[Rfam]
Background
The record is a 90-nucleotide RNA sequence from Enteractinococcus coprophilus, which matches "SAM riboswitch aptamer (S box leader)" in Rfam. The base pairs follow the family's consensus structure, which is taken from published work. NCBI's taxonomy places the organism under Bacteria, Bacillati, Actinomycetes, Micrococcaceae, Enteractinococcus. A search with the family's covariance model found it, with a score of 59 bits. The SAM riboswitch is found upstream of a number of genes which code for proteins involved in methionine or cysteine biosynthesis in Gram-positive bacteria.
RNA sequence: AAACCAUCCAGAGCGGCUAAGAGAUCUGGCUCGACGACGCCGCAGCAACCACCCUGUAGGGGAAGGUGCUACCGCCAGAACCGAUGGAAG
Numbered sequence: 001a002a003a004c005c006a007u008c009c010a011g012a013g014c015g016g017c018u019a020a021g022a023g024a025u026c027u028g029g030c031u032c033g034a035c036g037a038c039g040c041c042g043c044a045g046c047a048a049c050c051a052c053c054c055u056g057u058a059g060g061g062g063a064a065g066g067u068g069c070u071a072c073c074g075c076c077a078g079a080a081c082c083g084a085u086g087g088a089a090g
Stems, first nucleotide, its partner, number of pairs: 004087005013043005021032003026078004044070004049066002052061003074082001